[Rfam]
RNA sequence: GCGGUACCGGUUCACGUCACGAAAGCCAGCCCCAUGGUGCUCGGCCAGUGGCGACCCGGCGACC
Numbered sequence: 001g002c003g004g005u006a007c008c009g010g011u012u013c014a015c016g017u018c019a020c021g022a023a024a025g026c027c028a029g030c031c032c033c034a035u036g037g038u039g040c041u042c043g044g045c046c047a048g049u050g051g052c053g054a055c056c057c058g059g060c061g062a063c064c
Stems, first nucleotide, its partner, number of pairs: 003064003007059004015053006
Shown here is a 64-nucleotide sequence, a member of the family "L31-Actinobacteria ribosomal protein leader". Pairs were carried over by alignment from the consensus structure, which is taken from published work. The sequence is in the family's curated seed alignment. It is annotated as a cis-regulatory leader.